[Rfam]
RNA sequence: AAUGAGGGUCUAAGAGCUGGGGACCGGAACCUUUCCAUGUUCUUCCCAGUGUCAUUGCCCUCAGAGA
Numbered sequence: 001a002a003u004g005a006g007g008g009u010c011u012a013a014g015a016g017c018u019g020g021g022g023a024c025c026g027g028a029a030c031c032u033u034u035c036c037a038u039g040u041u042c043u044u045c046c047c048a049g050u051g052u053c054a055u056u057g058c059c060c061u062c063a064g065a066g067a
Stems, first nucleotide, its partner, number of pairs: 003063007016050008
The record is a 67-nucleotide RNA from Trypanosoma brucei, which matches "Trypanosomatid snoRNA TB3Cs2H1" in Rfam. Its family is annotated with RNA processing and nucleolus in the Gene Ontology. It is one of the family's seed sequences. Taxonomically the source falls in Trypanozoon (Eukaryota, Discoba, Trypanosomatida, Trypanosoma). The base pairs follow the family's consensus structure, which was predicted with WAR. Rfam classes the family as an H/ACA-box small nucleolar RNA.